[Rfam]
RNA sequence: GGGGACGACUGGUUUUGACAGCAAGGUCAGUGAAUUUGUAAGCAUAUCGAGUUAUGAAAUAACACUCGUUAAACCUAAUUUCAACUUUUUAAACGGCGAAGAUAACUACGCUUUAGCUGCAUAAUCUGAAUUAAUAGUAAGAUUAGCCUCGGCACACAAGGUGUGCAAGCUUUAUGUCCACGAGAAGCCUUGGUUUAUGGCGUUUCAUUUUUGGGCAUCGUAAAAAUAAACAUAGAAAAUCUGUAGCUUUGGCAGGUUUUUGAAACUAAAGAAGCUAAGUUUAAGGUAGGUUGUUCUUAAUCGGCCUUAGAUCGAAAACUUAAUAAGAACUAAAUAUGUAGAAAGCUUUUUGGCUGCUUGUUUGGACCCGAGUUCGAUUCUCGGCGUCUCCACAA
Numbered sequence: 001g002g003g004g005a006c007g008a009c010u011g012g013u014u015u016u017g018a019c020a021g022c023a024a025g026g027u028c029a030g031u032g033a034a035u036u037u038g039u040a041a042g043c044a045u046a047u048c049g050a051g052u053u054a055u056g057a058a059a060u061a062a063c064a065c066u067c068g069u070u071a072a073a074c075c076u077a078a079u080u081u082c083a084a085c086u087u088u089u090u091a092a093a094c095g096g097c098g099a100a101g102a103u104a105a106c107u108a109c110g111c112u113u114u115a116g117c118u119g120c121a122u123a124a125u126c127u128g129a130a131u132u133a134a135u136a137g138u139a140a141g142a143u144u145a146g147c148c149u150c151g152g153c154a155c156a157c158a159a160g161g162u163g164u165g166c167a168a169g170c171u172u173u174a175u176g177u178c179c180a181c182g183a184g185a186a187g188c189c190u191u192g193g194u195u196u197a198u199g200g201c202g203u204u205u206c207a208u209u210u211u212u213g214g215g216c217a218u219c220g221u222a223a224a225a226a227u228a229a230a231c232a233u234a235g236a237a238a239a240u241c242u243g244u245a246g247c248u249u250u251g252g253c254a255g256g257u258u259u260u261u262g263a264a265a266c267u268a269a270a271g272a273a274g275c276u277a278a279g280u281u282u283a284a285g286g287u288a289g290g291u292u293g294u295u296c297u298u299a300a301u302c303g304g305c306c307u308u309a310g311a312u313c314g315a316a317a318a319c320u321u322a323a324u325a326a327g328a329a330c331u332a333a334a335u336a337u338g339u340a341g342a343a344a345g346c347u348u349u350u351u352g353g354c355u356g357c358u359u360g361u362u363u364g365g366a367c368c369c370g371a372g373u374u375c376g377a378u379u380c381u382c383g384g385c386g387u388c389u390c391c392a393c394a395a
Stems, first nucleotide, its partner, number of pairs: 001391007019364002021361005030354002033351002038346002043338005048068005055083006122145006129138001175217006182206003187203002190200001195230002235261009245276006279312009289302003293330007368384005
This 395-nucleotide RNA from Polaribacter cellanae belongs to the Rfam family "transfer-messenger RNA". For this family Rfam cites "Phylogenetic analysis of tmRNA secondary structure" (Williams and Bartel, RNA, 1996). The family's consensus secondary structure is taken from published work. Clan: tRNA clan.